[Rfam]
RNA sequence: CGGUCGGCAGUUCACCCAGGCGUCACCGGUGCCCAUUCGGGCAGCUAAACCUGCCA
Number, nucleotide and partner (000 for none) at each position: 001c000002g016003g015004u014005c000006g000007g000008c000009a000010g000011u000012u000013c000014a004015c003016c002017c000018a000019g000020g000021c000022g000023u000024c000025a000026c000027c000028g000029g000030u000031g042032c041033c040034c039035a000036u000037u000038c000039g034040g033041g032042c031043a000044g000045c000046u000047a000048a000049a000050c000051c000052u000053g000054c000055c000056a000
COG3860 RNA: a 56-nucleotide sequence from Pseudomonas sp. FeS53a.
The base pairs follow the family's consensus structure, which is taken from published work.